[Rfam]
RNA sequence: UUGCACUUGUAUCAUAGGCCUAUCUUAGUAUGGUAAGUUUGGCCUGAGCCAGGUGCAUAAAACGAAAGCUGUUAAAUCAGCAGCAGCCAGACAACUGCAGAGAUGGAUCCACUGGUGAAUGGCUUUUGUUGCUACUUGCCUACUGAUUCCAUCUCAUAUUU
Numbered sequence: 001u002u003g004c005a006c007u008u009g010u011a012u013c014a015u016a017g018g019c020c021u022a023u024c025u026u027a028g029u030a031u032g033g034u035a036a037g038u039u040u041g042g043c044c045u046g047a048g049c050c051a052g053g054u055g056c057a058u059a060a061a062a063c064g065a066a067a068g069c070u071g072u073u074a075a076a077u078c079a080g081c082a083g084c085a086g087c088c089a090g091a092c093a094a095c096u097g098c099a100g101a102g103a104u105g106g107a108u109c110c111a112c113u114g115g116u117g118a119a120u121g122g123c124u125u126u127u128g129u130u131g132c133u134a135c136u137u138g139c140c141u142a143c144u145g146a147u148u149c150c151a152u153c154u155c156a157u158a159u160u161u
Stems, first nucleotide, its partner, number of pairs: 002057005009049001013048001015046006022039001024037004100155008118137002120134003
Dot-bracket structure: .(((((..(...(.((((((.(.((((......)))).).)))))).))...)))))..........................................((((((((..........(((((.........))).))..........))))))))......

This 161-nucleotide RNA sequence from Rhododendron williamsianum belongs to the Rfam family "small nucleolar RNA snoR143". Gene Ontology terms of the family: RNA processing and nucleolus. The family's RNA type in Rfam is H/ACA-box small nucleolar RNA. Rfam 15.1 lists 660 matches to the family in 212 species. NCBI's taxonomy places the organism under Eukaryota, Streptophytina, Gunneridae, Rhodoreae, Rhododendron. For this family Rfam cites "Mining small RNA sequencing data: a new approach to identify small nucleolar RNAs in Arabidopsis" (Chen and Wu, Nucleic Acids Res, 2009).